[Rfam]
Nucleotides: 072
Stems, first nucleotide, its partner, number of pairs: 002042004011036003017031006050072009
Number, partner (000 for none) and nucleotide at each position: 001000a002042g003041a004040g005039u006000g007000u008000u009000a010000u011036g012035a013034u014000g015000u016000u017031g018030g019029a020028g021027c022026u023000a024000a025000u026022g027021g028020c029019u030018c031017c032000g033000a034013g035012u036011c037000u038000a039005g040004c041003u042002c043000g044000a045000u046000g047000c048000u049000a050072c051071u052070c053069u054068c055067c056066a057065g058064u059000u060000u061000u062000u063000a064058a065057c066056u067055g068054g069053a070052g071051a072050g